[Rfam]
RNA sequence: ACUAGCCGAUGCGUCUCCUCCUCCCAUUGCGCAUCCGCUAGUGUUCCCCUCUGGAGGUUUUGCCAGAAAUGGCAUCCUUCAAAACUUAAGGCCGGGCAAUUGUCCGGCCUCUUUU
Numbered sequence: 001a002c003u004a005g006c007c008g009a010u011g012c013g014u015c016u017c018c019u020c021c022u023c024c025c026a027u028u029g030c031g032c033a034u035c036c037g038c039u040a041g042u043g044u045u046c047c048c049c050u051c052u053g054g055a056g057g058u059u060u061u062g063c064c065a066g067a068a069a070u071g072g073c074a075u076c077c078u079u080c081a082a083a084a085c086u087u088a089a090g091g092c093c094g095g096g097c098a099a100u101u102g103u104c105c106g107g108c109c110u111c112u113u114u115u
Base pairs, nucleotide, nucleotide: 001042002041003040004039005038008035009034011032012031013030014029052081053080054079055078056077057076089110090109091108092107093106094105095104096103097102
A member of the RNA family "Alphaproteobacterial ar15" from Phyllobacterium myrsinacearum, 115 nucleotides long. Rfam 15.1 lists 316 matches to the family in 177 species. NCBI's taxonomy places the organism under Bacteria, Pseudomonadati, Pseudomonadota, Hyphomicrobiales, Phyllobacterium. The family's RNA type in Rfam is small RNA.